[Rfam]
RNA: Small nucleolar RNA U6-53/MBII-28
RNA sequence: UGCCUGUGAUGACUCGCCAUGCUAAUACCGACCCCCCAGCAGCGCUUGGCUCUGCCCUGGGGGGGAAUGAGUUAAACUUGCUCCUCACGGAGUUCUGAGGCAC
Numbered sequence: 001u002g003c004c005u006g007u008g009a010u011g012a013c014u015c016g017c018c019a020u021g022c023u024a025a026u027a028c029c030g031a032c033c034c035c036c037c038a039g040c041a042g043c044g045c046u047u048g049g050c051u052c053u054g055c056c057c058u059g060g061g062g063g064g065g066a067a068u069g070a071g072u073u074a075a076a077c078u079u080g081c082u083c084c085u086c087a088c089g090g091a092g093u094u095c096u097g098a099g100g101c102a103c
Base pairs, nucleotide, nucleotide: 001102002101003100004099040054041053042052044050
Dot-bracket structure: ((((...................................(((.(.....).)))............................................)))).